RNA sequence: AAUUAACUGUAAAUUCUACCUAAGACUCGGGUGGCAUGACGCCUCAAAAUCCCGCCGAGGCCAGAAGAUGAUGAAGAUUUUUAUGCUCCAUGUCUUUCGGCAUGGAGCUUUUGCUUUUUUAAG
Dot-bracket structure: ...........................((((.(((.....))).......))))..............................((((((((((....))))))))))...............
Numbered sequence: 001a002a003u004u005a006a007c008u009g010u011a012a013a014u015u016c017u018a019c020c021u022a023a024g025a026c027u028c029g030g031g032u033g034g035c036a037u038g039a040c041g042c043c044u045c046a047a048a049a050u051c052c053c054g055c056c057g058a059g060g061c062c063a064g065a066a067g068a069u070g071a072u073g074a075a076g077a078u079u080u081u082u083a084u085g086c087u088c089c090a091u092g093u094c095u096u097u098c099g100g101c102a103u104g105g106a107g108c109u110u111u112u113g114c115u116u117u118u119u120u121a122a123g
Stems, first nucleotide, its partner, number of pairs: 028054004033043003085108010
Record summary
The family of this 123-nucleotide sequence from Lactobacillus crispatus is "Ribosomal protein L10 leader". Rfam classes the family as a cis-regulatory leader. The match comes from Rfam's covariance-model search (72 bits).